[Rfam]
RNA sequence: ACCAGGGGCCCUGAAUAGGGCCUCCGGAUCGAGCUCCGGCCCACUCGCCGAACUGAUCCGUGUUGUUACAGCCCACAAGGCGAAAUGACGAGGUUGCGACUGGCAAGAAGUUGUCCUGAGGGACGGGGAAGCAACCACGUAUCAGCAAGAUGGUCGAAUGCAGCCAUUCGCCCUCGCCCAACGGCAGCCACGAGCCGGCAAGCGAUCUCGAAUGCCACCGCUGCGGUCAUCUACCUGUUC
Number, nucleotide and partner (000 for none) at each position: 001a000002c000003c000004a000005g024006g023007g022008g021009c020010c019011c018012u017013g000014a000015a000016u000017a012018g011019g010020g009021c008022c007023u006024c005025c000026g000027g000028a057029u056030c055031g054032a000033g000034c000035u052036c000037c050038g000039g048040c047041c000042c000043a000044c000045u000046c000047g040048c039049c000050g037051a000052a035053c000054u031055g030056a029057u028058c000059c156060g155061u000062g151063u150064u149065g000066u147067u000068a000069c000070a000071g081072c080073c079074c000075a000076c000077a000078a000079g073080g072081c071082g000083a000084a000085a000086u000087g135088a000089c000090g132091a000092g000093g000094u000095u000096g000097c000098g000099a000100c000101u000102g000103g000104c000105a000106a000107g000108a000109a000110g000111u000112u000113g000114u000115c000116c128117u127118g000119a000120g000121g000122g000123a000124c000125g000126g000127g117128g116129a000130a000131g000132c090133a000134a000135c087136c000137a000138c000139g000140u000141a000142u000143c000144a000145g000146c000147a066148a000149g064150a063151u062152g000153g000154u000155c060156g059157a000158a000159u000160g000161c000162a000163g000164c000165c170166a000167u000168u000169c000170g165171c000172c000173c000174u000175c204176g203177c202178c000179c000180a000181a000182c197183g196184g195185c194186a000187g000188c000189c000190a000191c000192g000193a000194g185195c184196c183197g182198g000199c000200a000201a000202g177203c176204g175205a000206u000207c000208u000209c000210g000211a000212a230213u229214g228215c000216c226217a000218c000219c000220g000221c000222u000223g000224c000225g000226g216227u000228c214229a213230u212231c000232u000233a000234c000235c000236u000237g000238u000239u000240c000